[Rfam]
This 180-nucleotide sequence from Albimonas donghaensis belongs to the Rfam family "Ruegeria cis52 sRNA". Gene Ontology term of the family: regulation of gene expression.

RNA sequence: UGCGCAGCGCAUGGCCGACCACGAUGCGGGGAAAGCUCACGCCCUUCAGCCGGGCGGUGCGGAUAUAUUGCGCGGUCAUCACCUCGGCCAUGGAGGCGCGGGUCAUGCGGGCGAUAUAGCCCAUGCCGUAAAGCGCCAUGGUGGCGACGGGCAGGGCGAAAUUCUCGAAGGUGAUGUUCU
Numbered sequence: 001u002g003c004g005c006a007g008c009g010c011a012u013g014g015c016c017g018a019c020c021a022c023g024a025u026g027c028g029g030g031g032a033a034a035g036c037u038c039a040c041g042c043c044c045u046u047c048a049g050c051c052g053g054g055c056g057g058u059g060c061g062g063a064u065a066u067a068u069u070g071c072g073c074g075g076u077c078a079u080c081a082c083c084u085c086g087g088c089c090a091u092g093g094a095g096g097c098g099c100g101g102g103u104c105a106u107g108c109g110g111g112c113g114a115u116a117u118a119g120c121c122c123a124u125g126c127c128g129u130a131a132a133g134c135g136c137c138a139u140g141g142u143g144g145c146g147a148c149g150g151g152c153a154g155g156g157c158g159a160a161a162u163u164c165u166c167g168a169a170g171g172u173g174a175u176g177u178u179c180u
Stems, first nucleotide, its partner, number of pairs: 005140002009136002012133001016128002020125002029122003038113001040111001042109001046105001048103001050101003054097001055075001057073006082096004146179002148176002151172002154165003

Overview
By type it is a small RNA. The family has 2 seed sequences and 277 matches in Rfam 15.1. The organism belongs to Albimonas, within Bacteria. For this family Rfam cites "Experimental Identification of Small Non-Coding RNAs in the Model Marine Bacterium Ruegeria pomeroyi DSS-3" (Rivers et al., Front Microbiol, 2016).